This 53-nucleotide RNA belongs to the Rfam family "6A RNA". By type it is a small RNA. It is one of the family's seed sequences.

RNA sequence: AGAUAUGUUCGUAGAGCCACGAACAGGAUAAUCAAAAGAAAUAUUCAAUAAGA
Numbered sequence: 001a002g003a004u005a006u007g008u009u010c011g012u013a014g015a016g017c018c019a020c021g022a023a024c025a026g027g028a029u030a031a032u033c034a035a036a037a038g039a040a041a042u043a044u045u046c047a048a049u050a051a052g053a
Base pairs, nucleotide, nucleotide: 006025007024008023009022010021011020014046015045016044